A member of the RNA family "Small nucleolar RNA SNORD70" from Austrofundulus limnaeus, 88 nucleotides long. Taxonomically the source falls in Austrofundulus (Eukaryota, Teleostei, Clupeocephala, Euteleosteomorpha). From the family's description: snoRNA HBII-234 belongs to the C/D family of snoRNAs. It is the human orthologue of the mouse MBII-234 and is predicted to guide 2'O-ribose methylation of the small 18S rRNA on position A512. Rfam 15.1 lists 1,085 matches to the family in 579 species. Rfam links the family to the GO terms RNA processing and nucleolus. A reference for the family is Huttenhofer et al. (2001), "RNomics: an experimental approach that identifies 201 candidates for novel, small, non-messenger RNAs in mouse", EMBO J. Pairs were carried over by alignment from the consensus structure. It scores 53 bits against the family's covariance model.

RNA sequence: CACAGUGUGGUCUGUGAUGCAUUCUAGUGUCUGAUGACUACAUGAGGCAUUCCUUAUCCAACGUCACUACCACUGAGACCACACUGAU
Numbered sequence: 001c002a003c004a005g006u007g008u009g010g011u012c013u014g015u016g017a018u019g020c021a022u023u024c025u026a027g028u029g030u031c032u033g034a035u036g037a038c039u040a041c042a043u044g045a046g047g048c049a050u051u052c053c054u055u056a057u058c059c060a061a062c063g064u065c066a067c068u069a070c071c072a073c074u075g076a077g078a079c080c081a082c083a084c085u086g087a088u
Stems, first nucleotide, its partner, number of pairs: 003086010